[Rfam]
RNA sequence: CCCGGGGUUGUCACCCCGGGCUUUGGUAUGUAGCCCUUGCAGGGCU
Numbered sequence: 001c002c003c004g005g006g007g008u009u010g011u012c013a014c015c016c017c018g019g020g021c022u023u024u025g026g027u028a029u030g031u032a033g034c035c036c037u038u039g040c041a042g043g044g045c046u
Stems, first nucleotide, its partner, number of pairs: 001020008033045005

Rfam assigns this 46-nucleotide sequence from Cyclonatronum proteinivorum to the family "Acido-Lenti-1 RNA".
It scores 40 bits against the family's covariance model.